Overview
The record is a 101-nucleotide RNA from Spiroplasma endosymbiont of Megaselia nigra, which matches "Purine riboswitch aptamer" in Rfam. The family's consensus secondary structure is taken from published work.

RNA sequence: GUAAAUGUAUUAAACAAUUCCUAUAUAUGCUAGUAAUAUGGUCUAGUGUUUCUACGUCUUACCAUUUAUAAGAAGACUCUAUAGGUUAAUGCUUCAUUUUG
Numbered sequence: 001g002u003a004a005a006u007g008u009a010u011u012a013a014a015c016a017a018u019u020c021c022u023a024u025a026u027a028u029g030c031u032a033g034u035a036a037u038a039u040g041g042u043c044u045a046g047u048g049u050u051u052c053u054a055c056g057u058c059u060u061a062c063c064a065u066u067u068a069u070a071a072g073a074a075g076a077c078u079c080u081a082u083a084g085g086u087u088a089a090u091g092c093u094u095c096a097u098u099u100u101g
Stems, first nucleotide, its partner, number of pairs: 020085006029047005056077005